Shown here is a 127-nucleotide RNA sequence from Clostridium sp. CAG:245, a member of the family "DUF3800-I RNA". From the family's description: Actinobacteria, Firmicutes, Fusobacteria, Proteobacteria (1 example), Tenericutes (2 examples). It is one of the family's seed sequences. The family's RNA type in Rfam is small RNA. Taxonomically the source falls in Clostridium (Bacteria, Clostridia, Eubacteriales, Clostridiaceae).

RNA sequence: UUAAAUACCAGAAGGAUUCAUCCUUCGUUUGGUCGAUAGCUAGAUAAUGAUUGAAAAAUUAAGCGUAUGUUAAGUACGUCAUUCUAGUUGGGAAGAGGUUACUUCGGUAACCUCUUUUCAUUUAUGG
Numbered sequence: 001u002u003a004a005a006u007a008c009c010a011g012a013a014g015g016a017u018u019c020a021u022c023c024u025u026c027g028u029u030u031g032g033u034c035g036a037u038a039g040c041u042a043g044a045u046a047a048u049g050a051u052u053g054a055a056a057a058a059u060u061a062a063g064c065g066u067a068u069g070u071u072a073a074g075u076a077c078g079u080c081a082u083u084c085u086a087g088u089u090g091g092g093a094a095g096a097g098g099u100u101a102c103u104u105c106g107g108u109a110a111c112c113u114c115u116u117u118u119c120a121u122u123u124a125u126g127g
Base pairs, nucleotide, nucleotide: 008032009031010030011026012025013024014023015022016021037090038089039088040087041086042085046083047082048081049080050059051058052057063079064078065077066076067075068074092117093116094115095114096113097112098111099110100109101108